[Rfam]
RNA sequence: CUGGGGGAGGGGGGGUCCCUCAGCCCAGAUUGCGAGAGGGCUCAGGCAAGGCCGAGAGAUCCCACCAGUGCACG
Numbered sequence: 001c002u003g004g005g006g007g008a009g010g011g012g013g014g015g016u017c018c019c020u021c022a023g024c025c026c027a028g029a030u031u032g033c034g035a036g037a038g039g040g041c042u043c044a045g046g047c048a049a050g051g052c053c054g055a056g057a058g059a060u061c062c063c064a065c066c067a068g069u070g071c072a073c074g
Base pairs, nucleotide, nucleotide: 004071006069009066010065012063013062014061015060016059017058019056020055021054023052024051025050028047030045031044032043034041
RNA: mir-9193 microRNA precursor family
Organism: Myotis myotis